[Rfam]
RNA sequence: AGAUGGAAGAGAGCAGACAAGGAUGAGGCAGAGCAUGAGAUGAACCAAUUCACUCUUUUUGUGGUGUUGUUCUUCCCCUGCACUGCCUCUUCCCUGGCUCCUCUCUCUCUCUCUCU
Dot-bracket structure: ..............((.((.(((..((((((.(((.(.(....(..........................)....)).))).))))))..))).)).)).................
RNA: MIR408 microRNA precursor family
Organism: Nyssa sinensis